Rfam assigns this 77-nucleotide sequence from Musa acuminata to the family "Small nucleolar RNA Z155".
The literature on the family includes a 2003 paper in Nucleic Acids Res by Chen et al., "The high diversity of snoRNAs in plants: identification and comparative study of 120 snoRNA genes from Oryza sativa".
Taxonomically the source falls in Musa acuminata (Eukaryota, Embryophyta, Euphyllophyta, Mesangiospermae).
Rfam links the family to the GO terms RNA processing and nucleolus.
The family has 8 seed sequences and 429 matches in Rfam 15.1.

RNA sequence: CGUUGGCGUGAUGAUCCCUUUCUAGGAAUGCAACACAUGUCGAAUAAAUAAAUCAGACUACAAUUAUCUGAUCAACG
Number, nucleotide and partner (000 for none) at each position: 001c077002g076003u075004u074005g073006g072007c000008g000009u000010g000011a000012u000013g000014a000015u000016c000017c000018c000019u000020u000021u000022c000023u000024a000025g000026g000027a000028a000029u000030g000031c000032a000033a000034c000035a000036c000037a000038u000039g000040u000041c000042g000043a000044a000045u000046a000047a000048a000049u000050a000051a000052a000053u000054c000055a000056g000057a000058c000059u000060a000061c000062a000063a000064u000065u000066a000067u000068c000069u000070g000071a000072u006073c005074a004075a003076c002077g001